[Rfam]
RNA sequence: UUGGGAACAGCACAGUCGUAACUCUGACUCGCCCCUCGGGGCUUGGGAUUGCGACAGUGC
Numbered sequence: 001u002u003g004g005g006a007a008c009a010g011c012a013c014a015g016u017c018g019u020a021a022c023u024c025u026g027a028c029u030c031g032c033c034c035c036u037c038g039g040g041g042c043u044u045g046g047g048a049u050u051g052c053g054a055c056a057g058u059g060c
Base pairs, nucleotide, nucleotide: 010060011059012058013057015055016054017053018052019051020050021049024047025046031042032041033040034039
RNA: S15-Halobacteria ribosomal protein leader